[Rfam]
RNA sequence: CGAAAAAAAACCGCGCAGCACAAGGCUGGGCGGUAUGCAUAAUUCGGGGGCCACUUGCGCAGCCCCCUUCAUGGGAGAGGAGAAACCGGAUGAAGAGCUUAUGGGGAAACGUAAGUCUUCUCCGCGG
Numbered sequence: 001c002g003a004a005a006a007a008a009a010a011c012c013g014c015g016c017a018g019c020a021c022a023a024g025g026c027u028g029g030g031c032g033g034u035a036u037g038c039a040u041a042a043u044u045c046g047g048g049g050g051c052c053a054c055u056u057g058c059g060c061a062g063c064c065c066c067c068u069u070c071a072u073g074g075g076a077g078a079g080g081a082g083a084a085a086c087c088g089g090a091u092g093a094a095g096a097g098c099u100u101a102u103g104g105g106g107a108a109a110c111g112u113a114a115g116u117c118u119u120c121u122c123c124g125c126g127g
Stems, first nucleotide, its partner, number of pairs: 011033004016028004036075001038073003087124004092120004097116005
Notes:
Shown here is a 127-nucleotide sequence from Xylanibacillus composti, a member of the family "ylbH leader". The match comes from Rfam's covariance-model search (71 bits). By type it is a cis-regulatory leader. About the family: This family is a putative regulatory RNA structure that is found upstream of the ylbH gene in B. subtilis and related low GC Gram-positive bacteria. For this family Rfam cites "New RNA motifs suggest an expanded scope for riboswitches in bacterial genetic control" (Barrick et al., Proc Natl Acad Sci U S A, 2004). Gene Ontology term of the family: regulation of gene expression.